This 132-nucleotide RNA sequence from Ipomoea nil belongs to the Rfam family "Small nucleolar RNA snoR77". The match comes from Rfam's covariance-model search (115 bits). Its family is annotated with RNA processing and nucleolus in the Gene Ontology. Taxonomically the source falls in Ipomoea (Eukaryota, Embryophyta, Gunneridae, Convolvulaceae). The literature on the family includes a 2002 paper in Curr Biol by Marker et al., "Experimental RNomics: identification of 140 candidates for small non-messenger RNAs in the plant Arabidopsis thaliana".

[Rfam]
RNA sequence: AGGCAGCCCCCUUUUUCAAAGAAAAAAUAGGAAGGGAGGUGUUUAUCUGCUCGUAGAUUAAACCAUACUUUUGCUCUUCAGAUUUGCUGAGAUUUGUAUCUUUGAAGCUGGUCUAGUAGGCAUUAGUACAUU
Numbered sequence: 001a002g003g004c005a006g007c008c009c010c011c012u013u014u015u016u017c018a019a020a021g022a023a024a025a026a027a028u029a030g031g032a033a034g035g036g037a038g039g040u041g042u043u044u045a046u047c048u049g050c051u052c053g054u055a056g057a058u059u060a061a062a063c064c065a066u067a068c069u070u071u072u073g074c075u076c077u078u079c080a081g082a083u084u085u086g087c088u089g090a091g092a093u094u095u096g097u098a099u100c101u102u103u104g105a106a107g108c109u110g111g112u113c114u115a116g117u118a119g120g121c122a123u124u125a126g127u128a129c130a131u132u
Base pairs, nucleotide, nucleotide: 002043003042004041005040007039008038009036010035011034012033013032014031015030016029068126069125073121074120075119080114081113082112083111084110086108087107088106091100092099093098